Source information: This 171-nucleotide RNA sequence from Erwinia mallotivora belongs to the Rfam family "SraG RNA". Taxonomically the source falls in Erwinia (Bacteria, Pseudomonadati, Enterobacterales, Erwiniaceae). A reference for the family is Argaman et al. (2001), "Novel small RNA-encoding genes in the intergenic regions of Escherichia coli", Curr Biol. Gene Ontology terms of the family: mRNA binding and sRNA-mediated gene silencing. Rfam describes the family as follows. This RNA was discovered in E. coli during a large scale screen. Evidence was found for specific cleavage of this RNA. A search with the family's covariance model found it, with a score of 134 bits.

[Rfam]
RNA sequence: CCUCAUCUGCAUCCUCGCGACUAAUGACAACCCUUAAUCCCCACCCGGGACAAAGCCUCUCAUUAGCCGCGCGAAUCUCUGCAACUGAAGAUCACACUGAGCAACAAUACAAUAGUUUGACCUGGAUUGCUGCCGACUGCCUGAAAAAAGGGGCCAUAAAGGCCCCUUUUU
Numbered sequence: 001c002c003u004c005a006u007c008u009g010c011a012u013c014c015u016c017g018c019g020a021c022u023a024a025u026g027a028c029a030a031c032c033c034u035u036a037a038u039c040c041c042c043a044c045c046c047g048g049g050a051c052a053a054a055g056c057c058u059c060u061c062a063u064u065a066g067c068c069g070c071g072c073g074a075a076u077c078u079c080u081g082c083a084a085c086u087g088a089a090g091a092u093c094a095c096a097c098u099g100a101g102c103a104a105c106a107a108u109a110c111a112a113u114a115g116u117u118u119g120a121c122c123u124g125g126a127u128u129g130c131u132g133c134c135g136a137c138u139g140c141c142u143g144a145a146a147a148a149a150g151g152g153g154c155c156a157u158a159a160a161g162g163c164c165c166c167u168u169u170u171u
Base pairs, nucleotide, nucleotide: 001090003088004087005086009082010081011080016073017072018071019070021066022065023064024063025062026061027060097124150166151165152164153163154162155161